[Rfam]
RNA: ZMP/ZTP riboswitch aptamer (pfl RNA motif)
RNA sequence: UACGUCUCACGUAACUGGCGAAAAGCCGCGGCCUGUCAGGCCAGUCGGCGAAAGGUGGGCUUCCACCGGGGAACGUGAGAUUUCAUUAGCCGUUCGCCUGGGCAGCCACC
Numbered sequence: 001u002a003c004g005u006c007u008c009a010c011g012u013a014a015c016u017g018g019c020g021a022a023a024a025g026c027c028g029c030g031g032c033c034u035g036u037c038a039g040g041c042c043a044g045u046c047g048g049c050g051a052a053a054g055g056u057g058g059g060c061u062u063c064c065a066c067c068g069g070g071g072a073a074c075g076u077g078a079g080a081u082u083u084c085a086u087u088a089g090c091c092g093u094u095c096g097c098c099u100g101g102g103c104a105g106c107c108a109c110c
Stems, first nucleotide, its partner, number of pairs: 004081009015070002017098005055066004087105001089103003